[Rfam]
RNA sequence: AGCAGAGUAGGCAUAUGUGCGUUAAGUGCCGGCUGAACAGGGAGUUGUCAGCUGGACGAAAGGAACCUUCGGUUUCCUGCGGUACAUAAGCCGCAUCCCGCUGCA
Number, nucleotide and partner (000 for none) at each position: 001a000002g104003c103004a102005g101006a000007g000008u000009a000010g092011g091012c090013a000014u088015a087016u086017g085018u084019g083020c081021g080022u079023u000024a000025a000026g057027u056028g000029c055030c054031g053032g052033c051034u050035g049036a048037a000038c000039a000040g098041g097042g096043a000044g094045u000046u000047g000048u036049c035050a034051g033052c032053u031054g030055g029056a027057c026058g000059a000060a000061a078062g077063g076064a075065a000066c000067c000068u000069u000070c000071g000072g000073u000074u000075u064076c063077c062078u061079g022080c021081g020082g000083u019084a018085c017086a016087u015088a014089a000090g012091c011092c010093g000094c044095a000096u042097c041098c040099c000100g000101c005102u004103g003104c002105a000
A member of the RNA family "THF (Tetrahydrofolate) riboswitch aptamer" from Clostridiales bacterium 1_7_47FAA, 105 nucleotides long. The organism belongs to Eubacteriales, within Bacteria.